[Rfam]
RNA sequence: CUGAUCAACGCGUGCGGGUCAAUUGCGGCAUGCAACACCCGAUCUCCCUCAACGUACCGCCGAAAAUGGCGGUUUCCGAGGGCGAGCGCGUGACCAUCAG
Numbered sequence: 001c002u003g004a005u006c007a008a009c010g011c012g013u014g015c016g017g018g019u020c021a022a023u024u025g026c027g028g029c030a031u032g033c034a035a036c037a038c039c040c041g042a043u044c045u046c047c048c049u050c051a052a053c054g055u056a057c058c059g060c061c062g063a064a065a066a067u068g069g070c071g072g073u074u075u076c077c078g079a080g081g082g083c084g085a086g087c088g089c090g091u092g093a094c095c096a097u098c099a100g
Stems, first nucleotide, its partner, number of pairs: 001100005008091006015041004023035005043085002046082005
RNA: L4-Archaeoglobi ribosomal protein leades